[Rfam]
RNA sequence: UCCGACAAGGGCAAAACCAGGGCAAUCUGGUGACGCAAAGCCACGGGUCCUUCAGGGACAGCCGGGUUGCCGAAG
Dot-bracket structure: (.((......((...((((((....))))))..[))..((((.((((((.......))).])))))))..))..)
The family of this 75-nucleotide RNA sequence from Desulfuromonas soudanensis is "c-di-GMP-I-GGC riboswitch aptamer". Its family is annotated with cyclic-di-GMP binding in the Gene Ontology.